[Rfam]
RNA sequence: GUAUUUUAUGUUGUAUAAGCCCCGUGAUAUAAUCUAGUAUUAACCUACCUUUAAUGCCACUAUGUAAUUCGUGCAUUACUGCUAGCCAACAUGAAUAAUAUAUA
Numbered sequence: 001g002u003a004u005u006u007u008a009u010g011u012u013g014u015a016u017a018a019g020c021c022c023c024g025u026g027a028u029a030u031a032a033u034c035u036a037g038u039a040u041u042a043a044c045c046u047a048c049c050u051u052u053a054a055u056g057c058c059a060c061u062a063u064g065u066a067a068u069u070c071g072u073g074c075a076u077u078a079c080u081g082c083u084a085g086c087c088a089a090c091a092u093g094a095a096u097a098a099u100a101u102a103u104a
Stems, first nucleotide, its partner, number of pairs: 005095007013086001018080002024035001026034003037057002040053001042051002062076005

Rfam assigns this 104-nucleotide sequence from Theropithecus gelada to the family "Mitochondrial DNA control region secondary structure A". Pairs were carried over by alignment from the consensus structure, which is taken from published work. On this family, see Pereira et al., Mol Biol Evol 2008: "Evidence for variable selective pressures at a large secondary structure of the human mitochondrial DNA control region". Rfam 15.1 lists 795 matches to the family in 62 species.